The record is a 333-nucleotide sequence from Flavobacterium sp. PL002, which matches "Bacterial RNase P class A" in Rfam. Rfam classes the family as a ribozyme.

[Rfam]
RNA sequence: GACACAGACCGCCUUAUCGCUGUUUUGCUUCUGAUAGCUAUUGGGACAAAAGAGAGGAAAGUCCGGACACCAUAGAGAAGUAUAGCGGGUAACACCCGUCAGUUCUAAUUUAUUAGGGCUAGGACAAGUGCAACAGAAAGUAUGUACAGGUAAUGCUGUAGUGAAACCAGGUAAACUCUAUACGGUGAAAUAUCAAGUAUAUCAGCAUUUAAGGGCUUCUCGCUCGUUGUUGAAGGGUAGGUAGCUUGAGUCUCAGAGUAAUUUGAGAUCUAGAUAAAUGAUAAGGCUCCAAUUUAUUGGAGACAGAAUCCGGCUUAUAGGUCUGUUUUUUUU
Numbered sequence: 001g002a003c004a005c006a007g008a009c010c011g012c013c014u015u016a017u018c019g020c021u022g023u024u025u026u027g028c029u030u031c032u033g034a035u036a037g038c039u040a041u042u043g044g045g046a047c048a049a050a051a052g053a054g055a056g057g058a059a060a061g062u063c064c065g066g067a068c069a070c071c072a073u074a075g076a077g078a079a080g081u082a083u084a085g086c087g088g089g090u091a092a093c094a095c096c097c098g099u100c101a102g103u104u105c106u107a108a109u110u111u112a113u114u115a116g117g118g119c120u121a122g123g124a125c126a127a128g129u130g131c132a133a134c135a136g137a138a139a140g141u142a143u144g145u146a147c148a149g150g151u152a153a154u155g156c157u158g159u160a161g162u163g164a165a166a167c168c169a170g171g172u173a174a175a176c177u178c179u180a181u182a183c184g185g186u187g188a189a190a191u192a193u194c195a196a197g198u199a200u201a202u203c204a205g206c207a208u209u210u211a212a213g214g215g216c217u218u219c220u221c222g223c224u225c226g227u228u229g230u231u232g233a234a235g236g237g238u239a240g241g242u243a244g245c246u247u248g249a250g251u252c253u254c255a256g257a258g259u260a261a262u263u264u265g266a267g268a269u270c271u272a273g274a275u276a277a278a279u280g281a282u283a284a285g286g287c288u289c290c291a292a293u294u295u296a297u298u299g300g301a302g303a304c305a306g307a308a309u310c311c312g313g314c315u316u317a318u319a320g321g322u323c324u325g326u327u328u329u330u331u332u333u
Base pairs, nucleotide, nucleotide: 001329002328004326005325006324007323008322009321010320011318012286013285014284015283016282017281018280020054021053023051024050025049026048027047059316060315061314063313064312065311066310067309068187069186070185071184075221076220077219078218080183081182082181083180084179085099086098087097088096089095100122101120102119103118104117105116106115107114108113123178124177128176129175130172131171145160146159147158148157149156191243192242193241194240202233203232204231205230206229213225214224215223216222250269251268252267253266254265255264256263257262